[Rfam]
The family of this 97-nucleotide sequence from Coptis chinensis is "Small nucleolar RNA Z157/R69/R10".
On this family, see Chen et al., Nucleic Acids Res 2003: "The high diversity of snoRNAs in plants: identification and comparative study of 120 snoRNA genes from Oryza sativa".
Rfam classes the family as a C/D-box small nucleolar RNA.
A search with the family's covariance model found it, with a score of 79 bits.

RNA sequence: UGUGGUGCUGUGAUGAGGUCAAUAUUAGGACUAGAGUUUCUGAUCUGGGUUCCAACUCAGAAGUUGAAGACUAACCCUUGGCUGUCUGAGCACCAAC
Numbered sequence: 001u002g003u004g005g006u007g008c009u010g011u012g013a014u015g016a017g018g019u020c021a022a023u024a025u026u027a028g029g030a031c032u033a034g035a036g037u038u039u040c041u042g043a044u045c046u047g048g049g050u051u052c053c054a055a056c057u058c059a060g061a062a063g064u065u066g067a068a069g070a071c072u073a074a075c076c077c078u079u080g081g082c083u084g085u086c087u088g089a090g091c092a093c094c095a096a097c
Base pairs, nucleotide, nucleotide: 003095004094005093006092007091008090037069038068039067040066044062045060046059047058048057049056